Rfam assigns this 90-nucleotide RNA from Striga asiatica to the family "Small nucleolar RNA Z159/U59". Taxonomically the source falls in Striga (Eukaryota, Embryophyta, Spermatophyta, eudicotyledons).
RNA sequence: GUCUCCGAUGAUGAUUAAAAGCUUAUAACUUUCGUUCUUCUGAGAUAUUAAUUUAUGCUGAAACUUUAUGGAGACCUGAACUGAGGAGAC
Numbered sequence: 001g002u003c004u005c006c007g008a009u010g011a012u013g014a015u016u017a018a019a020a021g022c023u024u025a026u027a028a029c030u031u032u033c034g035u036u037c038u039u040c041u042g043a044g045a046u047a048u049u050a051a052u053u054u055a056u057g058c059u060g061a062a063a064c065u066u067u068a069u070g071g072a073g074a075c076c077u078g079a080a081c082u083g084a085g086g087a088g089a090c
Base pairs, nucleotide, nucleotide: 003088004087005086006085
The base pairs follow the family's consensus structure, which was predicted with PFOLD.
It scores 69 bits against the family's covariance model.